The family of this 91-nucleotide RNA from Trichonephila clavipes is "Vault RNA". Rfam's curators write: This family of RNAs are found as part of the enigmatic vault ribonucleoprotein complex. The complex consists of a major vault protein (MVP), two minor vault proteins (VPARP and TEP1), and several small untranslated RNA molecules. It has been suggested that the vault complex is involved in drug resistance. The source organism's lineage runs through Eukaryota, Arthropoda, Chelicerata, Araneomorphae and Trichonephila.

Nucleotides: 091
Base pairs, nucleotide, nucleotide: 002086003085004083005082006081007080012074013073014072015071017070018069019068020067025066026065027064028063029062
Number, partner (000 for none) and nucleotide at each position: 001000g002086a003085c004083c005082a006081g007080g008000c009000u010000u011000a012074g013073c014072u015071g016000a017070g018069u019068g020067g021000u022000u023000u024000c025066a026065u027064c028063g029062a030000u031000u032000g033000c034000u035000u036000u037000c038000a039000g040000u041000c042000c043000g044000g045000c046000g047000u048000g049000a050000c051000g052000a053000u054000c055000u056000a057000a058000g059000c060000g061000u062029u063028c064027g065026a066025u067020c068019c069018a070017c071015u072014g073013g074012c075000g076000c077000u078000g079000u080007c081006c082005u083004g084000u085003g086002u087000c088000a089000u090000u091000u